[Rfam]
RNA: dauA ncRNA motif
RNA sequence: ACUCCCGUAUCGGCGGCACGCCGCGAGGGCAGGACCCGGUCCGGCCACGCGGCUCGCCGACGGGCACUCCGAACCGAGGAGCCAUG
Numbered sequence: 001a002c003u004c005c006c007g008u009a010u011c012g013g014c015g016g017c018a019c020g021c022c023g024c025g026a027g028g029g030c031a032g033g034a035c036c037c038g039g040u041c042c043g044g045c046c047a048c049g050c051g052g053c054u055c056g057c058c059g060a061c062g063g064g065c066a067c068u069c070c071g072a073a074c075c076g077a078g079g080a081g082c083c084a085u086g
Stems, first nucleotide, its partner, number of pairs: 002081004010060004015055002019051003025045001027042004032037001063075002